[Rfam]
RNA: U2 spliceosomal RNA
RNA sequence: AUCACUUCUCAGCCUUUUGGCUAAGAUCAAAUGUAGUGUCUGUUCUUAUCAGUUUAAUAUCUGAUACAUUCUCGUGAGAGGACUUUAUGCUAAUUGGAUUUUUGGGCAUGGGAGUUGUAUCUGGAGCUUGCUCCCUCCACUUUGUGCAUCGUCCUGGUAUUGCAGUGCCUCCAGGAAUGGUGCAAAUUUU
Number, nucleotide and partner (000 for none) at each position: 001a000002u000003c000004a000005c000006u000007u026008c025009u024010c000011a022012g021013c020014c019015u000016u000017u000018u000019g014020g013021c012022u011023a000024a009025g008026a007027u000028c000029a000030a000031a000032u000033g000034u000035a000036g000037u000038g000039u000040c000041u000042g000043u000044u000045c000046u000047u066048a065049u064050c063051a062052g061053u000054u000055u000056a000057a000058u000059a000060u000061c052062u051063g050064a049065u048066a047067c000068a000069u082070u081071c080072u079073c078074g000075u000076g000077a000078g073079a072080g071081g070082a069083c000084u000085u000086u000087a000088u000089g000090c000091u000092a000093a000094u000095u000096g000097g000098a000099u000100u000101u000102u000103u000104g000105g000106g000107c000108a000109u000110g000111g143112g142113a141114g140115u139116u000117g137118u000119a000120u000121c000122u000123g134124g133125a132126g131127c000128u000129u000130g000131c126132u125133c124134c123135c000136u000137c117138c000139a115140c114141u113142u112143u111144g000145u000146g183147c182148a181149u180150c179151g178152u000153c175154c174155u173156g172157g171158u000159a000160u000161u000162g000163c000164a000165g000166u000167g000168c000169c000170u000171c157172c156173a155174g154175g153176a000177a000178u151179g150180g149181u148182g147183c146184a000185a000186a000187u000188u000189u000190u000